[Rfam]
RNA sequence: UCCUGCUGUCGGCCUCUUUACAGUGCUGCCUUGUGGCCUGUCAAUCAAGCAGCAUUGUACAGGGCUAUGACUGCACGG
Numbered sequence: 001u002c003c004u005g006c007u008g009u010c011g012g013c014c015u016c017u018u019u020a021c022a023g024u025g026c027u028g029c030c031u032u033g034u035g036g037c038c039u040g041u042c043a044a045u046c047a048a049g050c051a052g053c054a055u056u057g058u059a060c061a062g063g064g065c066u067a068u069g070a071c072u073g074c075a076c077g078g
Stems, first nucleotide, its partner, number of pairs: 014064004019059010030049004
Shown here is a 78-nucleotide RNA sequence from Anguilla anguilla, a member of the family "mir-103/107 microRNA precursor family". This family consists of the mammalian microRNA (miRNA) precursors mir-103 and mir107. Animal miRNAs are transcribed as ~70nt precursors and subsequently processed by the Dicer enzyme to give a ~22nt product. In this case the mature sequence comes from the 3' arm of the precursor. The source organism's lineage runs through Eukaryota, Teleostomi, Actinopterygii, Elopocephalai and Anguilla. A search with the family's covariance model found it, with a score of 88 bits. Its family is annotated with miRNA-mediated post-transcriptional gene silencing and RISC complex in the Gene Ontology. The base pairs follow the family's consensus structure, which was predicted with RNAalifold. On this family, see Mourelatos et al., Genes Dev 2002: "miRNPs: a novel class of ribonucleoproteins containing numerous microRNAs".